Annotation:
The family of this 367-nucleotide RNA sequence from Psychromonas ingrahamii is "Bacterial RNase P class A". The sequence is in the family's curated seed alignment. Lineage of the source: Bacteria > Pseudomonadati > Gammaproteobacteria > Alteromonadales > Psychromonas ingrahamii.
RNA sequence: GGAGUUGGCCAGAUCGUCGCCGCUUUUAUUGCUUGCAAUAAGAGGGGAGGAAAGUCCGGGCUUCAACAGGGCAGGGUGCCAGGUAACGCCUGGGUAGCGUGAGCUAACGACAAGUGCAGCAGAGAGGAAACCGCCGAUGUGUUUAUGUAAAUAAAUGCAGGUAAGGGUGAAAGGGUGCGGUAAGAGCGCACCGGCCAUCUAGUAAUAGUUUGGUGCAAGGUAAACUCCACCCGAAGCAAGACCAAAUAGGCUUCCUGAGGUAUGGCCCAUACUGGAAGCGGGUAGGUUGCUUGAGCCUGUGAGUGAUUGCAGGCCUAGACGAAUGACGAUUCAACGACAAAACCCGGCUUAUAGGCUGACUCUAUUA
Numbered sequence: 001g002g003a004g005u006u007g008g009c010c011a012g013a014u015c016g017u018c019g020c021c022g023c024u025u026u027u028a029u030u031g032c033u034u035g036c037a038a039u040a041a042g043a044g045g046g047g048a049g050g051a052a053a054g055u056c057c058g059g060g061c062u063u064c065a066a067c068a069g070g071g072c073a074g075g076g077u078g079c080c081a082g083g084u085a086a087c088g089c090c091u092g093g094g095u096a097g098c099g100u101g102a103g104c105u106a107a108c109g110a111c112a113a114g115u116g117c118a119g120c121a122g123a124g125a126g127g128a129a130a131c132c133g134c135c136g137a138u139g140u141g142u143u144u145a146u147g148u149a150a151a152u153a154a155a156u157g158c159a160g161g162u163a164a165g166g167g168u169g170a171a172a173g174g175g176u177g178c179g180g181u182a183a184g185a186g187c188g189c190a191c192c193g194g195c196c197a198u199c200u201a202g203u204a205a206u207a208g209u210u211u212g213g214u215g216c217a218a219g220g221u222a223a224a225c226u227c228c229a230c231c232c233g234a235a236g237c238a239a240g241a242c243c244a245a246a247u248a249g250g251c252u253u254c255c256u257g258a259g260g261u262a263u264g265g266c267c268c269a270u271a272c273u274g275g276a277a278g279c280g281g282g283u284a285g286g287u288u289g290c291u292u293g294a295g296c297c298u299g300u301g302a303g304u305g306a307u308u309g310c311a312g313g314c315c316u317a318g319a320c321g322a323a324u325g326a327c328g329a330u331u332c333a334a335c336g337a338c339a340a341a342a343c344c345c346g347g348c349u350u351a352u353a354g355g356c357u358g359a360c361u362c363u364a365u366u367a
Stems, first nucleotide, its partner, number of pairs: 001363010011352001012331007020047002023044008052350003056347005061236004069268004074232005079093005094108001095106004109227002114225002116221002131166002133162003138159009174192006193216001194214004199208003240288004250279006259273005295314008
The literature on the family includes a 1998 paper in Annu Rev Biochem by Frank and Pace, "Ribonuclease P: unity and diversity in a tRNA processing ribozyme".